[Rfam]
RNA: U2 spliceosomal RNA
RNA sequence: AAAGCAUACGCCUUUCGGCUAAGGUCAAGUGUAAUAUCUGUUCUUAUUAGUUUAAUAUCUGAAACGUGGGCAAUCGAUUCACGUGAUAUUAAAUUAAGUUUUCAAGGGGAGAGGCGCUGCAGUAGCUUGCUACUGAGCCUUGCCACUGGCCCUCUUGUGCGUCGCUCAGGCGUUGCACCGUUGCCCUCGUCUGCGCACCCCAC
Numbered sequence: 001a002a003a004g005c006a007u008a009c010g011c012c013u014u015u016c017g018g019c020u021a022a023g024g025u026c027a028a029g030u031g032u033a034a035u036a037u038c039u040g041u042u043c044u045u046a047u048u049a050g051u052u053u054a055a056u057a058u059c060u061g062a063a064a065c066g067u068g069g070g071c072a073a074u075c076g077a078u079u080c081a082c083g084u085g086a087u088a089u090u091a092a093a094u095u096a097a098g099u100u101u102u103c104a105a106g107g108g109g110a111g112a113g114g115c116g117c118u119g120c121a122g123u124a125g126c127u128u129g130c131u132a133c134u135g136a137g138c139c140u141u142g143c144c145a146c147u148g149g150c151c152c153u154c155u156u157g158u159g160c161g162u163c164g165c166u167c168a169g170g171c172g173u174u175g176c177a178c179c180g181u182u183g184c185c186c187u188c189g190u191c192u193g194c195g196c197a198c199c200c201c202a203c
Base pairs, nucleotide, nucleotide: 007022010019011018012017045064047062048061049060050059066082067081068080069079070078110156111155113153114152116150117149122133123132124131125130159196160195161194162193164191169185170184171183